[Rfam]
RNA sequence: ACAAAUUGUAGAGGUGCAAAUGCGAUAAUUACUUUUUCAGAGUGGAAAACGAUGAAGAGAAAGGAAAGGCGUAUUUGCCGAAAUCAAUUAAGCGUCAUCUUAAUUGGUUGGUGUCGUUACCGAAAGGAACGAUACUGUCACGGAUUUACCGUGGAGUGCUACUGUUAGG
Numbered sequence: 001a002c003a004a005a006u007u008g009u010a011g012a013g014g015u016g017c018a019a020a021u022g023c024g025a026u027a028a029u030u031a032c033u034u035u036u037u038c039a040g041a042g043u044g045g046a047a048a049a050c051g052a053u054g055a056a057g058a059g060a061a062a063g064g065a066a067a068g069g070c071g072u073a074u075u076u077g078c079c080g081a082a083a084u085c086a087a088u089u090a091a092g093c094g095u096c097a098u099c100u101u102a103a104u105u106g107g108u109u110g111g112u113g114u115c116g117u118u119a120c121c122g123a124a125a126g127g128a129a130c131g132a133u134a135c136u137g138u139c140a141c142g143g144a145u146u147u148a149c150c151g152u153g154g155a156g157u158g159c160u161a162c163u164g165u166u167a168g169g
Base pairs, nucleotide, nucleotide: 006164008162009161010160011159016078017077018076019075020074021073022072023071024070032063033062034061035060036059037058038057082109083108084107085106086105087104088103089102090101091100092099110136111135112134113133114132115131116130117129118128120126138154139153140152141151142150143149
A member of the RNA family "Lysine riboswitch aptamer" from Pasteurellaceae bacterium 15-036681, 169 nucleotides long. Pairs were carried over by alignment from the consensus structure, which is taken from published work. Taxonomically the source falls in Pasteurellaceae (Bacteria, Pseudomonadati, Gammaproteobacteria, Pasteurellales).